[Rfam]
RNA sequence: UUAACGGGUCGCAACUGGCGUUGGGUGGACUACCACCAGGGAGCGGCAAUCAUGAAGACCACGGAUCGUACGCCUGGGCCGAGGGU
Dot-bracket structure: .......(((((..(([[[[[...((((....))))..))..)))))..............(((.((..]]]]]..))))).....

This 86-nucleotide RNA from Paenarthrobacter aurescens belongs to the Rfam family "ZMP/ZTP riboswitch aptamer (pfl RNA motif)". Its family is annotated with regulation of purine nucleotide biosynthetic process and one-carbon metabolic process in the Gene Ontology. A search with the family's covariance model found it, with a score of 42 bits. NCBI's taxonomy places the organism under Bacteria, Actinomycetota, Micrococcales, Micrococcaceae, Paenarthrobacter.